[Rfam]
RNA sequence: GAAAGACGCGCAUUUGUUAUCAUCAUCCUGACAACUAAGAUGUUAUUCGGCCACAAUGAAGUGGCCUUUU
Numbered sequence: 001g002a003a004a005g006a007c008g009c010g011c012a013u014u015u016g017u018u019a020u021c022a023u024c025a026u027c028c029u030g031a032c033a034a035c036u037a038a039g040a041u042g043u044u045a046u047u048c049g050g051c052c053a054c055a056a057u058g059a060a061g062u063g064g065c066c067u068u069u070u
Stems, first nucleotide, its partner, number of pairs: 024042004029037002049066006
Shown here is a 70-nucleotide sequence from bacteria symbiont BFo2 of Frankliniella occidentalis, a member of the family "MicA sRNA". By type it is a small RNA. On this family, see Argaman et al., Curr Biol 2001: "Novel small RNA-encoding genes in the intergenic regions of Escherichia coli". NCBI's taxonomy places the organism under Bacteria, Pseudomonadati, Pseudomonadota, Gammaproteobacteria, Enterobacterales.